[Rfam]
RNA sequence: UGGCACCCAAUGUGUGGGGCACCUGGUACAGAGGAUUCAGUGAUGGAACCAUCCAAGUGAGAGCGCAAGAGUGAAAGUAAAAGAGGCCCGCUCCGCAGUUGCCUGCUGCGACGUCUGAACCUUGGUAAGUGGAUAGUACCCCUUUCCCUUUUCCUUCGGCAAUGGGACAGGCAUUAAGUGAACAUGAGAUAUUUGUUGAAAACUUGAGUAAAGCAUUAAAGGCGCAAGGAGUAAAGGUUAAAAUUAAGGAUUUGUGUCAAUAUUUUGAAUAUAUUAAACAAGUUUUCCCAU
Number, nucleotide and partner (000 for none) at each position: 001u000002g000003g000004c000005a000006c034007c033008c000009a000010a000011u000012g029013u028014g027015u000016g000017g000018g000019g000020c000021a000022c000023c000024u000025g000026g000027u014028a013029c012030a000031g000032a000033g007034g006035a000036u000037u000038c000039a000040g052041u051042g050043a000044u000045g000046g000047a000048a000049c000050c042051a041052u040053c000054c000055a000056a000057g000058u000059g000060a000061g000062a000063g000064c000065g000066c000067a000068a000069g000070a000071g000072u000073g000074a000075a000076a000077g000078u000079a000080a000081a000082a000083g000084a000085g122086g121087c000088c000089c000090g000091c113092u000093c000094c110095g109096c108097a107098g106099u000100u000101g000102c000103c000104u000105g000106c098107u097108g096109c095110g094111a000112c000113g091114u000115c000116u000117g000118a000119a000120c000121c086122u085123u000124g000125g000126u000127a000128a000129g000130u000131g000132g000133a000134u170135a000136g168137u167138a000139c166140c165141c164142c000143u000144u000145u000146c000147c000148c000149u000150u000151u000152u000153c000154c000155u000156u000157c000158g000159g000160c000161a000162a000163u000164g141165g140166g139167a137168c136169a000170g134171g000172c000173a000174u000175u218176a217177a216178g214179u213180g000181a000182a000183c000184a000185u000186g000187a000188g000189a000190u000191a000192u000193u000194u000195g000196u000197u000198g000199a000200a000201a000202a000203c000204u000205u000206g000207a000208g000209u000210a000211a000212a000213g179214c178215a000216u177217u176218a175219a000220a000221g000222g000223c000224g000225c267226a266227a265228g264229g263230a000231g261232u260233a000234a000235a253236g252237g251238u250239u249240a000241a000242a000243a000244u000245u000246a000247a000248g000249g239250a238251u237252u236253u235254g000255u000256g000257u000258c000259a000260a232261u231262a000263u229264u228265u227266u226267g225268a000269a000270u000271a000272u000273a000274u000275u000276a291277a000278a000279c000280a000281a286282g000283u000284u000285u000286u281287c000288c000289c000290a000291u276

Mason-Pfizer monkey virus packaging signal: a 291-nucleotide RNA sequence from Octodon degus.
On this family, see Mustafa et al., Virus Res 2004: "Mutational analysis of the predicted secondary RNA structure of the Mason-Pfizer monkey virus packaging signal".
The base pairs follow the family's consensus structure, which was predicted with PFOLD.
Rfam describes the family as follows. This family represents a group of sequences that are related to the Mason-Pfizer monkey virus (MPMV) packaging signal. The packaging signal is located in the 5' UTR and is required for specific RNA encapsidation.